[Rfam]
RNA sequence: ACCAUCCUAGUCUUGGGGUGAAACGGGAAACUCAAUGAGCGUCUAGCGAGAGUUCCCUGCUGACACCAUACCAACACUUUCGCAUCUCCUGAACUUCAUGUUUAGGUUACGGUGCAAUUUUUGGAAAC
Numbered sequence: 001a002c003c004a005u006c007c008u009a010g011u012c013u014u015g016g017g018g019u020g021a022a023a024c025g026g027g028a029a030a031c032u033c034a035a036u037g038a039g040c041g042u043c044u045a046g047c048g049a050g051a052g053u054u055c056c057c058u059g060c061u062g063a064c065a066c067c068a069u070a071c072c073a074a075c076a077c078u079u080u081c082g083c084a085u086c087u088c089c090u091g092a093a094c095u096u097c098a099u100g101u102u103u104a105g106g107u108u109a110c111g112g113u114g115c116a117a118u119u120u121u122u123g124g125a126a127a128c
Base pairs, nucleotide, nucleotide: 006018007017008016020060022058027056029054030053031052032051033050039047040046082115083114084113085112086111087109089105090104091103092102093101094100
RNA: U4atac minor spliceosomal RNA